[Rfam]
RNA sequence: GUAAGCUAUGAUGAGCCUGUUUACAGACCUGUAAUGAUUUGCGAACAUGAUCGCAACAUUAUGAACAUCUAAGGGGCUGAGCUCGC
Dot-bracket structure: .(.(((..........................................................................))).).
RNA: Small nucleolar RNA SNORD25
Organism: Kalanchoe fedtschenkoi